[Rfam]
RNA sequence: CGCGAGAGUGAUGAGCUGCACAUCAGUGUGGCCGCAGCAUCCAGGGAUGCAGGCCACACUCAGUAUCCGUCUGGUGACAAACCAAGUGCACAGGGGCCAGCUGACUCGCG
Numbered sequence: 001c002g003c004g005a006g007a008g009u010g011a012u013g014a015g016c017u018g019c020a021c022a023u024c025a026g027u028g029u030g031g032c033c034g035c036a037g038c039a040u041c042c043a044g045g046g047a048u049g050c051a052g053g054c055c056a057c058a059c060u061c062a063g064u065a066u067c068c069g070u071c072u073g074g075u076g077a078c079a080a081a082c083c084a085a086g087u088g089c090a091c092a093g094g095g096g097c098c099a100g101c102u103g104a105c106u107c108g109c110g
Base pairs, nucleotide, nucleotide: 004109006107007106008105022064023063026059027058028057029056031054032053033052037050038049039048040047041046